RNA sequence: AAGAGCCUUGAGCCAAUAAAUACCGAGAGGAUUGACUCGAGAACAAA
Numbered sequence: 001a002a003g004a005g006c007c008u009u010g011a012g013c014c015a016a017u018a019a020a021u022a023c024c025g026a027g028a029g030g031a032u033u034g035a036c037u038c039g040a041g042a043a044c045a046a047a
Stems, first nucleotide, its partner, number of pairs: 007041002010038003014034004

Background:
Shown here is a 47-nucleotide RNA from Ziziphus jujuba, a member of the family "Plastid-rpl16 group II-D1 intron". For this family Rfam cites "Retrograde signaling in plants: A critical review focusing on the GUN pathway and beyond" (Richter et al., Plant Commun, 2023). Its family is annotated with Group II intron splicing in the Gene Ontology. It scores 60 bits against the family's covariance model. The organism belongs to Ziziphus jujuba, within Eukaryota.